[Rfam]
RNA sequence: CGUGGUGCGUACGAUAACGCA
Numbered sequence: 001c002g003u004g005g006u007g008c009g010u011a012c013g014a015u016a017a018c019g020c021a
Stems, first nucleotide, its partner, number of pairs: 001013003006021005